A member of the RNA family "Group II catalytic intron D1-D4-2" from Acrocarpospora pleiomorpha, 120 nucleotides long. Pairs were carried over by alignment from the consensus structure. Group II introns are found in rRNA, tRNA and mRNA of organelles in fungi, plants and protists, and also in mRNA in bacteria.

[Rfam]
RNA sequence: GGAGGUAGGUCCUCCGGGAUCGCCCUGCAGGGGGAGGUCCCAAACCACCGCAGGCUGCGUCGGUUAAGUGCCGUUCGUGGUGAGCGCUGCGGGAAAAGGCGCGGUGUGAUCGCGUCAGGU
Numbered sequence: 001g002g003a004g005g006u007a008g009g010u011c012c013u014c015c016g017g018g019a020u021c022g023c024c025c026u027g028c029a030g031g032g033g034g035a036g037g038u039c040c041c042a043a044a045c046c047a048c049c050g051c052a053g054g055c056u057g058c059g060u061c062g063g064u065u066a067a068g069u070g071c072c073g074u075u076c077g078u079g080g081u082g083a084g085c086g087c088u089g090c091g092g093g094a095a096a097a098g099g100c101g102c103g104g105u106g107u108g109a110u111c112g113c114g115u116c117a118g119g120u
Stems, first nucleotide, its partner, number of pairs: 001015005016041006023034004046119001048092006054081002057078003061073004098116006